[Rfam]
RNA: c-di-GMP-I riboswitch aptamer
RNA sequence: UAACGAGAAAGGCAAAACAGGUGAAAACCUGUGUCGCAAAACUAUAGGGUCUAAGUAAUGGGCGUAACCAUCAUAGGACAGCCAGUUGCCACA
Numbered sequence: 001u002a003a004c005g006a007g008a009a010a011g012g013c014a015a016a017a018c019a020g021g022u023g024a025a026a027a028c029c030u031g032u033g034u035c036g037c038a039a040a041a042c043u044a045u046a047g048g049g050u051c052u053a054a055g056u057a058a059u060g061g062g063c064g065u066a067a068c069c070a071u072c073a074u075a076g077g078a079c080a081g082c083c084a085g086u087u088g089c090c091a092c093a
Base pairs, nucleotide, nucleotide: 012037013036017032018031019030020029021028022027040087041086042085043084047083048082049079050078051077056073058071059070060069061068